[Rfam]
RNA sequence: AAGUCAUUUUGGCAAACUCCGCGAAAGUGGGGGACGCAAAGCAUGGGUCCUGGAUACGCCGCGGGAAAGGCAGGGAUCGCCAGGUUGCAGCA
Numbered sequence: 001a002a003g004u005c006a007u008u009u010u011g012g013c014a015a016a017c018u019c020c021g022c023g024a025a026a027g028u029g030g031g032g033g034a035c036g037c038a039a040a041g042c043a044u045g046g047g048u049c050c051u052g053g054a055u056a057c058g059c060c061g062c063g064g065g066a067a068a069g070g071c072a073g074g075g076a077u078c079g080c081c082a083g084g085u086u087g088c089a090g091c092a
Stems, first nucleotide, its partner, number of pairs: 012037002017032006040086003044082003047077004
RNA: c-di-GMP-I riboswitch aptamer
Organism: Thermincola carboxydiphila